[Rfam]
RNA sequence: AAUGGAAGCUGCAGGCACCAAGCAUGUGGACAAAUGAGAAAAUACCUUUGUCUACAGAUUGCAGCAAUCCUACAUAAACGUGGAGGUCUCUGUCUGACUUAGAACAGCUGGCUAAGUCUGAUCGUUCCCCUCCAUACAUC
Numbered sequence: 001a002a003u004g005g006a007a008g009c010u011g012c013a014g015g016c017a018c019c020a021a022g023c024a025u026g027u028g029g030a031c032a033a034a035u036g037a038g039a040a041a042a043u044a045c046c047u048u049u050g051u052c053u054a055c056a057g058a059u060u061g062c063a064g065c066a067a068u069c070c071u072a073c074a075u076a077a078a079c080g081u082g083g084a085g086g087u088c089u090c091u092g093u094c095u096g097a098c099u100u101a102g103a104a105c106a107g108c109u110g111g112c113u114a115a116g117u118c119u120g121a122u123c124g125u126u127c128c129c130c131u132c133c134a135u136a137c138a139u140c
Base pairs, nucleotide, nucleotide: 004070005069006068008065009064010063011062012061025056026055027054028053029052030051031050036048037047038046082133083132084131085130086129090124092122093121094120096118097117098116099115100114101113102112
This 140-nucleotide RNA from Otolemur garnettii belongs to the Rfam family "Small Cajal body specific RNA 3". Rfam's curators put it in the seed alignment. scaRNAs are a specific class of small nuclear RNAs which localise to the Cajal bodies and guide the modification of RNA polymerase II transcribed spliceosomal RNAs U1, U2, U4, U5 and U12. Rfam 15.1 lists 642 matches to the family in 535 species. A reference for the family is Darzacq et al. (2002), "Cajal body-specific small nuclear RNAs: a novel class of 2'-O-methylation and pseudouridylation guide RNAs", EMBO J. The family's consensus secondary structure was predicted with RNAalifold. It is annotated as a small Cajal body RNA. Its Rfam clan is "SCARNA3 clan".